[Rfam]
RNA sequence: CCUCUAAACCAUGAUGAUAUCAUAACUUAUAUUCUUGCAAGUCUCAAUCAUGAAUAUGAUAGUUUUGUGGCUCAAUUUCAGCACAAAUUGACAGCAUCACCCUUGAAGAGAUUUACUCUCUCCUGCUGACAUUUGAAGC
Numbered sequence: 001c002c003u004c005u006a007a008a009c010c011a012u013g014a015u016g017a018u019a020u021c022a023u024a025a026c027u028u029a030u031a032u033u034c035u036u037g038c039a040a041g042u043c044u045c046a047a048u049c050a051u052g053a054a055u056a057u058g059a060u061a062g063u064u065u066u067g068u069g070g071c072u073c074a075a076u077u078u079c080a081g082c083a084c085a086a087a088u089u090g091a092c093a094g095c096a097u098c099a100c101c102c103u104u105g106a107a108g109a110g111a112u113u114u115a116c117u118c119u120c121u122c123c124u125g126c127u128g129a130c131a132u133u134u135g136a137a138g139c
Stems, first nucleotide, its partner, number of pairs: 004138002007134002088106004
Overview
Small nucleolar RNA Z247: a 139-nucleotide RNA sequence from Salix brachista. For this family Rfam cites "The high diversity of snoRNAs in plants: identification and comparative study of 120 snoRNA genes from Oryza sativa" (Chen et al., Nucleic Acids Res, 2003). The family has 8 seed sequences and 7,071 matches in Rfam 15.1. The family's consensus secondary structure was predicted with PFOLD.